[Rfam]
RNA sequence: CAUCUCUGGAGAGCUCGUAUAAAGUGAAUCUUCCAUCAGUGGAGGAUCUUACUGCCCGUUAAGAGUGGGAUAAAGUUGUACGACACCCAAGGGGACCCCAUAUGAAUUUGGGCAUAAACUCUCAGGUAAAAGGACAGAGAAGGGUAG
Dot-bracket structure: (.((((((......((((((((.....................................................)))))))).(((.(..(((........................))))..))).......)))))).).....
The family of this 147-nucleotide sequence from Cytobacillus depressus is "Glycine riboswitch aptamer". Rfam links the family to the GO term glycine biosynthetic process.